[Rfam]
RNA sequence: UUGGAGACUAAGAAAAUAGAGUCCUUGAAGUCAAGCUGACUCUGCUUUUAGCCUCCUAAAUGAAAAGCUAGAUAGAACAGGUUUUAUUUGUAAAAUAAAUUCAAGUCCUACUUACCAACGGUG
Numbered sequence: 001u002u003g004g005a006g007a008c009u010a011a012g013a014a015a016a017u018a019g020a021g022u023c024c025u026u027g028a029a030g031u032c033a034a035g036c037u038g039a040c041u042c043u044g045c046u047u048u049u050a051g052c053c054u055c056c057u058a059a060a061u062g063a064a065a066a067g068c069u070a071g072a073u074a075g076a077a078c079a080g081g082u083u084u085u086a087u088u089u090g091u092a093a094a095a096u097a098a099a100u101u102c103a104a105g106u107c108c109u110a111c112u113u114a115c116c117a118a119c120g121g122u123g
Base pairs, nucleotide, nucleotide: 003056004055005054006053008051009050010049011048017044018043019042020041021040022039023038024035025034026033027032067116073114074113079109080108081107083105084104085103
Source information
This 123-nucleotide RNA sequence from Prolemur simus belongs to the Rfam family "Small Cajal body specific RNA 15". Rfam describes the family as follows. scaRNAs are a specific class of small nuclear RNAs which localise to the Cajal bodies and guide the modification of RNA polymerase II transcribed spliceosomal RNAs U1, U2, U4, U5 and U12. ACA45 belongs to the H/ACA box class of guide RNAs as it has the predicted hairpin-hinge-hairpin-tail structure, the conserved H/ACA-box motifs and is found associated with GAR1. ACA45 is predicted to guide the pseudouridylation of residue U37 of the U2 spliceosomal snRNA. The literature on the family includes a 2002 paper in EMBO J by Darzacq et al., "Cajal body-specific small nuclear RNAs: a novel class of 2'-O-methylation and pseudouridylation guide RNAs". It scores 107 bits against the family's covariance model. It is annotated as a small Cajal body RNA.